[Rfam]
RNA: Small nucleolar RNA SNORA11
Organism: Pipistrellus kuhlii
RNA sequence: UGGAUGUGGAGAGAGUAGAGCGCCUGAAGAAUGGCUCCCUUGUAAGAAACACAUCCAACAGCAACUUGGGCUUACUUCUCACAGGUGGCAAGAUACCAGGACCGUCCUGUGAUAUUACGCCCUACAUAU
Numbered sequence: 001u002g003g004a005u006g007u008g009g010a011g012a013g014a015g016u017a018g019a020g021c022g023c024c025u026g027a028a029g030a031a032u033g034g035c036u037c038c039c040u041u042g043u044a045a046g047a048a049a050c051a052c053a054u055c056c057a058a059c060a061g062c063a064a065c066u067u068g069g070g071c072u073u074a075c076u077u078c079u080c081a082c083a084g085g086u087g088g089c090a091a092g093a094u095a096c097c098a099g100g101a102c103c104g105u106c107c108u109g110u111g112a113u114a115u116u117a118c119g120c121c122c123u124a125c126a127u128a129u
Stems, first nucleotide, its partner, number of pairs: 002056007015043004020038001022035003069122002072119001077114001080111001082104001084102001086098003090094001